[Rfam]
RNA sequence: AUGGGGCGCGCCUAGGGUUCCGCCGUCGCCCGCGACGGGCUGGUCCAAGAGGGGCAGGCGGGACUCGCGUCCCGUUCCACGGCGGGAGAAAAACCCGGGAGGC
Numbered sequence: 001a002u003g004g005g006g007c008g009c010g011c012c013u014a015g016g017g018u019u020c021c022g023c024c025g026u027c028g029c030c031c032g033c034g035a036c037g038g039g040c041u042g043g044u045c046c047a048a049g050a051g052g053g054g055c056a057g058g059c060g061g062g063a064c065u066c067g068c069g070u071c072c073c074g075u076u077c078c079a080c081g082g083c084g085g086g087a088g089a090a091a092a093a094c095c096c097g098g099g100a101g102g103c
Stems, first nucleotide, its partner, number of pairs: 008055002011052002015046002020043002022040001023038006057076008078098001080101001084096003
Dot-bracket structure: .......((.((..((...(((((((((....)))))).).)).))....)).)).((((((((....)))))))).(.[...(((.......))).)..]..
The record is a 103-nucleotide RNA sequence from a Frankiales bacterium, which matches "Guanidine-I riboswitch aptamer" in Rfam. The pairing is the family consensus, mapped onto this sequence. Taxonomically the source falls in Frankiales (Bacteria, Bacillati, Actinomycetota, Actinomycetes). Rfam links the family to the GO term regulation of gene expression.